This 217-nucleotide sequence from Dictyobacter alpinus belongs to the Rfam family "HNH endonuclease-associated RNA and ORF (HEARO) RNA". The organism belongs to Dictyobacter, within Bacteria.
[Rfam]
RNA sequence: GUCAGGAACCCCACGGCUAAAGCCGGGGGCUUGUGAAAGCAAGCCCACACCUGACCAGUCUCAGAUUUGAAACAGAAUCUCCGUUCGGGAAGAAACUAGGUACGGCAGGGUGCUUUCCAGCCCUGCCCGCUACGGUCCACCAUUAAACAGGCGUACAGGGUUAAGCCAGUGUGGUGGACGAGAAACCUUCCGUGAACAUUGACGAGGAAAACAUUAC
Number, nucleotide and partner (000 for none) at each position: 001g055002u054003c053004a052005g051006g050007a000008a000009c000010c029011c028012c026013a000014c000015g000016g023017c022018u000019a000020a000021a000022g017023c016024c000025g000026g012027g000028g011029g010030c043031u042032u041033g040034u000035g000036a000037a000038a000039g000040c033041a032042a031043g030044c000045c000046c000047a000048c000049a000050c006051c005052u004053g003054a002055c001056c000057a000058g203059u202060c201061u000062c000063a080064g079065a078066u077067u076068u000069g000070a000071a000072a000073c000074a000075g000076a067077a066078u065079c064080u063081c000082c000083g197084u196085u195086c194087g193088g191089g190090a189091a188092g187093a000094a000095a000096c000097u000098a000099g000100g133101u132102a000103c000104g127105g126106c125107a124108g123109g122110g121111u120112g000113c000114u211115u210116u208117c207118c206119a000120g111121c110122c109123c108124u107125g106126c105127c104128c000129g000130c000131u000132a101133c100134g000135g179136u178137c177138c176139a175140c174141c173142a172143u171144u000145a000146a000147a170148c169149a000150g167151g166152c165153g000154u163155a162156c000157a000158g000159g000160g000161u000162u155163a154164a000165g152166c151167c150168a000169g148170u147171g143172u142173g141174g140175u139176g138177g137178a136179c135180g000181a000182g000183a000184a000185a000186c000187c092188u091189u090190c089191c088192g000193u087194g086195a085196a084197c083198a000199u000200u000201g060202a059203c058204g000205a000206g118207g117208a116209a000210a115211a114212c000213a000214u000215u000216a000217c000